Nucleotides: 164
Base pairs, nucleotide, nucleotide: 012122013121014120015119017047018046019045021043023042024041025040026039027038049090050089051088052087054086056083057082058081060079061078063076064075092117093116094115095113096112097111099109100108138163139162140161141160142159143158146155147154148153
Number, partner (000 for none) and nucleotide at each position: 001000a002000u003000a004000c005000u006000u007000a008000c009000c010000u011000g012122g013121c014120a015119g016000a017047g018046a019045a020000a021043a022000c023042a024041c025040c026039g027038u028000g029000c030000u031000c032000a033000a034000g035000a036000a037000g038027g039026u040025g041024g042023u043021u044000c045019u046018u047017c048000c049090a050089g051088a052087g053000c054086g055000a056083g057082a058081c059000u060079c061078a062000g063076u064075u065000a066000u067000u068000g069000u070000a071000c072000u073000c074000u075064g076063g077000g078061u079060g080000u081058g082057u083056u084000g085000a086054c087052c088051u089050c090049u091000g092117c093116g094115a095113u096112u097111u098000c099109c100108u101000c102000a103000a104000a105000c106000a107000g108100a109099g110000g111097a112096a113095a114000c115094u116093c117092g118000u119015c120014u121013g122012c123000a124000u125000a126000a127000u128000u129000u130000g131000u132000g133000g134000u135000a136000g137000u138163g139162g140161g141160g142159g143158a144000c145000u146155g147154c148153g149000u150000g151000c152000g153148c154147g155146c156000u157000u158143u159142c160141c161140c162139c163138u164000g